[Rfam]
Nucleotides: 434
Stems, first nucleotide, its partner, number of pairs: 015033003019029002034432002045410002049392002054078004059073001063071002085388001087386001094140001097111002100109003119133003150167005170384003175380001177378003180374001187196001205360002209356001214345003219340006226331003229249002232246001234244001254301004262292006271283004309326001312323002315320001398407002414426002417423001
Number, partner (000 for none) and nucleotide at each position: 001000a002000a003000u004000a005000a006000u007000a008000a009000c010000a011000a012000a013000u014000a015033c016032u017031u018000c019029a020028a021000u022000a023000a024000g025000a026000a027000c028020u029019u030000a031017a032016a033015g034432g035431a036000c037000c038000g039000a040000a041000g042000u043000a044000a045410g046409g047000a048000a049392a050391g051000g052000u053000u054078c055077u056076a057075u058000a059073u060000a061000a062000a063071u064070a065000g066000c067000g068000g069000u070064u071063a072000a073059a074000c075057a076056u077055a078054g079000g080000u081000u082000a083000a084000u085388u086000a087386a088000u089000c090000c091000u092000a093000a094140a095000c096000c097111a098110u099000a100109g101108g102107g103000a104000a105000g106000u107102u108101c109100c110098g111097u112000u113000u114000u115000a116000a117000a118000a119133g120132g121131g122000u123000a124000c125000u126000u127000a128000u129000a130000c131121c132120c133119c134000g135000u136000a137000u138000a139000a140094u141000a142000a143000a144000a145000a146000a147000g148000a149000a150167g151166c152165c153164g154163g155000u156000u157000a158000a159000u160000a161000u162000u163154c164153c165152g166151g167150u168000a169000c170384c171383u172382a173000a174000a175380u176000a177378u178377a179376g180374a181000u182000u183000u184000u185000a186000c187196g188000c189000a190000g191000u192000a193000a194000c195000a196187u197000a198000a199000c200000u201000a202000a203000a204000c205360g206359u207000a208000a209356a210000g211000a212000u213000a214345a215344c216343g217000g218000c219340a220339g221338g222337g223336g224335c225000c226331c227330c228329g229249g230248g231000c232246a233000a234244a235000g236000u237000u238000c239000u240000c241000u242000u243000u244234u245000c246232u247000u248230c249229u250000u251000a252000a253000c254301g255300g256299u257298u258000u259000a260000u261000u262292a263291c264290c265289c266288u267287a268000a269000a270000a271283u272282c273281g274280g275000u276000u277000u278000a279000u280274c281273c282272g283271g284000a285000g286000c287267u288266a289265g290264g291263g292262u293000u294000u295000a296000a297000c298257a299256g300255c301254u302000a303000g304000a305000a306000g307000a308000g309326c310000c311000c312323a313322g314000c315320a316000c317000u318000u319000c320315u321000a322313u323312u324000a325000a326309g327000u328000c329228c330227g331226g332000u333000a334000c335224g336223c337222u338221c339220u340219u341000a342000a343216c344215g345214u346000c347000c348000c349000u350000u351000a352000a353000a354000a355000a356209u357000c358000c359206g360205c361000a362000a363000a364000a365000a366000g367000g368000a369000a370000u371000a372000a373000u374180u375000c376179u377178u378177a379000c380175g381000c382172u383171a384170g385000g386087u387000c388085g389000u390000a391050c392049u393000c394000a395000u396000a397000a398407c399406c400000g401000c402000a403000g404000c405000a406399g407398g408000u409046c410045u411000c412000c413000a414426a415425g416000a417423u418000a419000a420000a421000c422000a423417g424000c425415c426414u427000c428000u429000a430000a431035u432034u433000a434000a